[Rfam]
The family of this 154-nucleotide RNA from Carnobacterium divergens is "glmS glucosamine-6-phosphate activated ribozyme aptamer". The match comes from Rfam's covariance-model search (103 bits). NCBI's taxonomy places the organism under Bacteria, Bacillati, Lactobacillales, Carnobacteriaceae, Carnobacterium divergens. For this family Rfam cites "Control of gene expression by a natural metabolite-responsive ribozyme" (Winkler et al., Nature, 2004). The family's consensus secondary structure is taken from published work.
Nucleotides: 154
Stems, first nucleotide, its partner, number of pairs: 020041008051082005059071004083096004100144007115128005
Number, partner (000 for none) and nucleotide at each position: 001000a002000u003000a004000c005000c006000a007000a008000u009000a010000a011000a012000a013000g014000c015000g016000c017000c018000a019000g020041g021040c022039c023038a024037u025036u026035u027034u028000a029000u030000c031000a032000a033000a034027a035026a036025a037024a038023u039022g040021g041020u042000g043000a044000c045000g046000a047000g048000g049000a050000g051082a052081g053080a054079g055078c056000u057000u058000a059071u060070c061069g062068a063000a064000a065000g066000a067000u068062u069061c070060g071059g072000c073000g074000g075000a076000u077000g078055g079054c080053u081052c082051u083096a084095g085094g086093c087000a088000g089000u090000g091000c092000a093086g094085u095084c096083u097000a098000c099000a100144g101143g102142c103141a104140a105139u106138u107000c108000u109000a110000a111000a112000a113000a114000u115128a116127c117126a118125a119124a120000g121000u122000g123000a124119u125118u126117u127116g128115u129000u130000a131000a132000c133000a134000a135000a136000g137000a138106a139105a140104u141103u142102g143101c144100c145000a146000a147000g148000u149000a150000c151000c152000u153000a154000g